[Rfam]
RNA sequence: UUACUGGACGCUUUAGCUAUUAAACUGUUUUGACACAAUCUGUCAAAGAACAAAUUGUUAUCUGUCAGAGAGUGACAGAACAGUUGAAUAGCUAAAGCAUCCAGUAAU
Numbered sequence: 001u002u003a004c005u006g007g008a009c010g011c012u013u014u015a016g017c018u019a020u021u022a023a024a025c026u027g028u029u030u031u032g033a034c035a036c037a038a039u040c041u042g043u044c045a046a047a048g049a050a051c052a053a054a055u056u057g058u059u060a061u062c063u064g065u066c067a068g069a070g071a072g073u074g075a076c077a078g079a080a081c082a083g084u085u086g087a088a089u090a091g092c093u094a095a096a097g098c099a100u101c102c103a104g105u106a107a108u
Base pairs, nucleotide, nucleotide: 001107002106003105004104005103006102011097012096013095014094015093016092017091018090019089020088021087023085024084025083026082027081028080029069030068031067032066033065034064035063049059050058051057052056